Rfam assigns this 114-nucleotide RNA from Acidothermus cellulolyticus to the family "TPP riboswitch aptamer (THI element)".

[Rfam]
RNA sequence: AGCUCGUCCCACGGGAGCCCCGCGUUCCGGGGCUGAGAGGGCGGCAGGACCGGCCGCCGACCGUUAGCACCUGAUCCGGUUCACACCGGCGUAGGGAGGAGUAUCCAGUGACCA
Numbered sequence: 001a002g003c004u005c006g007u008c009c010c011a012c013g014g015g016a017g018c019c020c021c022g023c024g025u026u027c028c029g030g031g032g033c034u035g036a037g038a039g040g041g042c043g044g045c046a047g048g049a050c051c052g053g054c055c056g057c058c059g060a061c062c063g064u065u066a067g068c069a070c071c072u073g074a075u076c077c078g079g080u081u082c083a084c085a086c087c088g089g090c091g092u093a094g095g096g097a098g099g100a101g102u103a104u105c106c107a108g109u110g111a112c113c114a
Base pairs, nucleotide, nucleotide: 006102007101009099010098011064012063013062014061017033018032019031020030021029040058041057042056043055044054070095071094072093073092076089077088078087079086
NCBI's taxonomy places the organism under Bacteria, Actinomycetota, Actinomycetes, Acidothermus, Acidothermus cellulolyticus.